A member of the RNA family "Plant signal recognition particle RNA" from Kingdonia uniflora, 304 nucleotides long. The family's consensus secondary structure is taken from published work. The source organism's lineage runs through Eukaryota, Tracheophyta, Mesangiospermae, Circaeasteraceae and Kingdonia. The literature on the family includes a 2002 paper in Nucleic Acids Res by Regalia et al., "Prediction of signal recognition particle RNA genes".

RNA sequence: ACCGAGCUUAGUAAUGUUGGCUUGUAACCCAAGUGGGGGCAAUAAGGUGCUUGAAUACUCUGAUCUGUUUCGCAGGGUCGGGUCUGUGUGGGGCAAACAUUCUGGAUCUCGCCCGCUCCAAGUUGGGAGUUGGGUCGGUGUGGUUCAGGCGAAAGCUUUAGGAGUUGGAUCGUUAUCCCUCCUAAAGAGGAGGGUACUGCACAGAGCAGCGAAAACCUCUCUCGGCAGUGGAGGGAUAACGAUCUGCUGUCCCUCAGGCCCAUAAAAAACCCCAAGAACCAACCUCAGUCGGACAACCACUUAU
Numbered sequence: 001a002c003c004g005a006g007c008u009u010a011g012u013a014a015u016g017u018u019g020g021c022u023u024g025u026a027a028c029c030c031a032a033g034u035g036g037g038g039g040c041a042a043u044a045a046g047g048u049g050c051u052u053g054a055a056u057a058c059u060c061u062g063a064u065c066u067g068u069u070u071c072g073c074a075g076g077g078u079c080g081g082g083u084c085u086g087u088g089u090g091g092g093g094c095a096a097a098c099a100u101u102c103u104g105g106a107u108c109u110c111g112c113c114c115g116c117u118c119c120a121a122g123u124u125g126g127g128a129g130u131u132g133g134g135u136c137g138g139u140g141u142g143g144u145u146c147a148g149g150c151g152a153a154a155g156c157u158u159u160a161g162g163a164g165u166u167g168g169a170u171c172g173u174u175a176u177c178c179c180u181c182c183u184a185a186a187g188a189g190g191a192g193g194g195u196a197c198u199g200c201a202c203a204g205a206g207c208a209g210c211g212a213a214a215a216c217c218u219c220u221c222u223c224g225g226c227a228g229u230g231g232a233g234g235g236a237u238a239a240c241g242a243u244c245u246g247c248u249g250u251c252c253c254u255c256a257g258g259c260c261c262a263u264a265a266a267a268a269a270c271c272c273c274a275a276g277a278a279c280c281a282a283c284c285u286c287a288g289u290c291g292g293a294c295a296a297c298c299a300c301u302u303a304u
Stems, first nucleotide, its partner, number of pairs: 002039002004023005010017001028037003045302005051296003056291001060288003064282001067279002070277002075272004080261007088253001090252003094249002103246006111240001113235002116233005122226008132181003137176001140173007148166003182187001192217002198213001200211001202209001